[Rfam]
RNA sequence: CGCCAAGAACCACGAGGACAGUCUCCCCUUGUGGAUCGGGCAAAAUUCAUGAUCAAGGAG
Numbered sequence: 001c002g003c004c005a006a007g008a009a010c011c012a013c014g015a016g017g018a019c020a021g022u023c024u025c026c027c028c029u030u031g032u033g034g035a036u037c038g039g040g041c042a043a044a045a046u047u048c049a050u051g052a053u054c055a056a057g058g059a060g
Stems, first nucleotide, its partner, number of pairs: 003040002007037002010034008

Record summary: Shown here is a 60-nucleotide sequence from Pelobacter propionicus, a member of the family "L20-Deltaproteobacteria ribosomal protein leader". Taxonomically the source falls in Pelobacter propionicus (Bacteria, Thermodesulfobacteriota, Desulfuromonadia, Desulfuromonadaceae). The family's consensus secondary structure is taken from published work.